[Rfam]
RNA: mir-139 microRNA precursor family
Organism: Corythaixoides concolor
RNA sequence: CUGUAUUCUACAGUGCAUGUGUCUCCAGUGUGAGUAAGCGACUGGAGCCGCAGCCCUGUUGGAAUCAC
Numbered sequence: 001c002u003g004u005a006u007u008c009u010a011c012a013g014u015g016c017a018u019g020u021g022u023c024u025c026c027a028g029u030g031u032g033a034g035u036a037a038g039c040g041a042c043u044g045g046a047g048c049c050g051c052a053g054c055c056c057u058g059u060u061g062g063a064a065u066c067a068c
Base pairs, nucleotide, nucleotide: 006064007063008062009061010059011058012057013056015054016053018052019051020050021049023047024046025045026044027043028042029041